[Rfam]
A member of the RNA family "Small nucleolar RNA SNORA25" from Heterocephalus glaber, 129 nucleotides long.
The family's consensus secondary structure was predicted with RNAfold.
It scores 95 bits against the family's covariance model.
ACA25 is a member of the H/ACA class of snoRNA that guide the sites of modification of uridines to pseudouridines.
Lineage of the source: Eukaryota > Gnathostomata > Sarcopterygii > Euarchontoglires > Heterocephalus.
Gene Ontology terms of the family: nucleolus and RNA processing.
By type it is an H/ACA-box small nucleolar RNA.
RNA sequence: GUGUCAUUACAAAGAAGGUUUGUUGAACUGUGAAACCAGGGACUCUGAAUGCUAUGACCAAAGAUUGAAGUUCUCCGUGGAAUGCCACACUCACUCAGUAGUGCUGUAUUUUCCCGGGGAGAUAAAAUA
Numbered sequence: 001g002u003g004u005c006a007u008u009a010c011a012a013a014g015a016a017g018g019u020u021u022g023u024u025g026a027a028c029u030g031u032g033a034a035a036c037c038a039g040g041g042a043c044u045c046u047g048a049a050u051g052c053u054a055u056g057a058c059c060a061a062a063g064a065u066u067g068a069a070g071u072u073c074u075c076c077g078u079g080g081a082a083u084g085c086c087a088c089a090c091u092c093a094c095u096c097a098g099u100a101g102u103g104c105u106g107u108a109u110u111u112u113c114c115c116g117g118g119g120a121g122a123u124a125a126a127a128u129a
Base pairs, nucleotide, nucleotide: 003058004057005056006055007054015046017044018043019042020041021040023039072122073121074120075119076118079115080114082112087107088106089105092103093102094101095100